RNA sequence: GGUUGGGCAGACUUAAGGUCUGUUUCAAGAGAUUUCGCUUCUGGGGUGGGAGGCU
Numbered sequence: 001g002g003u004u005g006g007g008c009a010g011a012c013u014u015a016a017g018g019u020c021u022g023u024u025u026c027a028a029g030a031g032a033u034u035u036c037g038c039u040u041c042u043g044g045g046g047u048g049g050g051a052g053g054c055u
Base pairs, nucleotide, nucleotide: 003028004027005026006024007023008022009021010020011019037054038053039052040051041050042049